The family of this 88-nucleotide sequence from Lactococcus lactis is "ctRNA". Rfam links the family to the GO terms plasmid copy number maintenance and mRNA binding. Taxonomically the source falls in Lactococcus (Bacteria, Bacillati, Bacillota, Streptococcaceae). The literature on the family includes a 1998 paper in FEMS Microbiol Lett by Duan et al., "Involvement of antisense RNA in replication control of the lactococcal plasmid pND324". Rfam's curators write: Rolling circle replication plasmids contain a number of mechanisms to maintain a low copy number. One of these methods is to transcribe a small RNA called ctRNA (for counter-transcribed RNA) than is transcribed on the opposite strand to RepB the replication initiation protein. ctRNA binds to the mRNA of repB and causes translational inhibition.

RNA sequence: UAGAAAGUUACUCCUUUGUGAGUGAUUUUAAGGUGGCAUAGAGAAAGUGAUUUUGCGGUCAUAAUUUCUCUAUGCUUUUAUUAUACCA
Numbered sequence: 001u002a003g004a005a006a007g008u009u010a011c012u013c014c015u016u017u018g019u020g021a022g023u024g025a026u027u028u029u030a031a032g033g034u035g036g037c038a039u040a041g042a043g044a045a046a047g048u049g050a051u052u053u054u055g056c057g058g059u060c061a062u063a064a065u066u067u068c069u070c071u072a073u074g075c076u077u078u079u080a081u082u083a084u085a086c087c088a
Base pairs, nucleotide, nucleotide: 004029005028006027007026008025009024010023011022012021013020035076036075037074038073039072040071041070042069043068044067045066046065